The family of this 206-nucleotide RNA sequence is "Group II catalytic intron D1-D4-5". Group II introns are found in rRNA, tRNA and mRNA of organelles in fungi, plants and protists, and also in mRNA in bacteria. Its family is annotated with Group II intron splicing in the Gene Ontology.
RNA sequence: GAGAACUGACAAUCCGAUGGGUGGAAUGACAGGAUAACGCCUUGAAACGCUCACACUGAUACUCCGAUUGACGGCGAUAUGCGACUGCCUAACCGUCAAAAGCUCGGUGAAGUCGGCAGAGAGUGACCGUAAGCGGGAUUUUUUUUUACCGCACGAAACCUGUCCAGAGGUGGGAUGGCGUCACCUAUAUGCCGGGUGUCGGAUAC
Dot-bracket structure: .................((((((.......(((.......)))....))))))((((......(((((((((((((.........))).....))))))....))))......(((((....((((((((....((............))..)))....(((((((....))).)))).))))).....)))))))))........